[Rfam]
RNA: Bacterial RNase P class B
Organism: Mesomycoplasma hyopneumoniae
RNA sequence: UGCACAAGUCAAUUGCAGAUAUAAUUAAAUAUAAUAAUUUUUUUAUAAUUGUUAUAUUUAACAAAUUUAUAUUUGAGGAAAGUCCGCGCUAGCACUACCUGAGAUGGUAGUAGUGUUCAUGUUGGAUCUAAUAAAUCCAAGCUUUAGACGACCAGUGCCACAGAGACGAGUUUAUUUAUUAAUUUGUUUAUAUUAAAAAAUAGUUUAGAAUUUUUAAAUUAAUAAAUAAGGUGAAACGCGGUAAACUCCAUGAGCUAGAAACCUAAAUUUUGGUAAGGGAGCCCAAUUUCGGGAAACAAACUUUAAUUGGGAAGUUCUAUUAUAAUAUUUUUAUAAAGAACUUAGAUAAAUGAUUGAUUAAUACAGAACGCGGCUUAUUAGUGCAAAAAAAACAGCGAAUCUGAA
Numbered sequence: 001u002g003c004a005c006a007a008g009u010c011a012a013u014u015g016c017a018g019a020u021a022u023a024a025u026u027a028a029a030u031a032u033a034a035u036a037a038u039u040u041u042u043u044u045a046u047a048a049u050u051g052u053u054a055u056a057u058u059u060a061a062c063a064a065a066u067u068u069a070u071a072u073u074u075g076a077g078g079a080a081a082g083u084c085c086g087c088g089c090u091a092g093c094a095c096u097a098c099c100u101g102a103g104a105u106g107g108u109a110g111u112a113g114u115g116u117u118c119a120u121g122u123u124g125g126a127u128c129u130a131a132u133a134a135a136u137c138c139a140a141g142c143u144u145u146a147g148a149c150g151a152c153c154a155g156u157g158c159c160a161c162a163g164a165g166a167c168g169a170g171u172u173u174a175u176u177u178a179u180u181a182a183u184u185u186g187u188u189u190a191u192a193u194u195a196a197a198a199a200a201u202a203g204u205u206u207a208g209a210a211u212u213u214u215u216a217a218a219u220u221a222a223u224a225a226a227u228a229a230g231g232u233g234a235a236a237c238g239c240g241g242u243a244a245a246c247u248c249c250a251u252g253a254g255c256u257a258g259a260a261a262c263c264u265a266a267a268u269u270u271u272g273g274u275a276a277g278g279g280a281g282c283c284c285a286a287u288u289u290c291g292g293g294a295a296a297c298a299a300a301c302u303u304u305a306a307u308u309g310g311g312a313a314g315u316u317c318u319a320u321u322a323u324a325a326u327a328u329u330u331u332u333a334u335a336a337a338g339a340a341c342u343u344a345g346a347u348a349a350a351u352g353a354u355u356g357a358u359u360a361a362u363a364c365a366g367a368a369c370g371c372g373g374c375u376u377a378u379u380a381g382u383g384c385a386a387a388a389a390a391a392a393c394a395g396c397g398a399a400u401c402u403g404a405a
Stems, first nucleotide, its partner, number of pairs: 004382002007378001008358007016075009080376003084373005089258005094111006117253005122140006141149001142147001150248002155246002157242003171230016262278003282311007312343006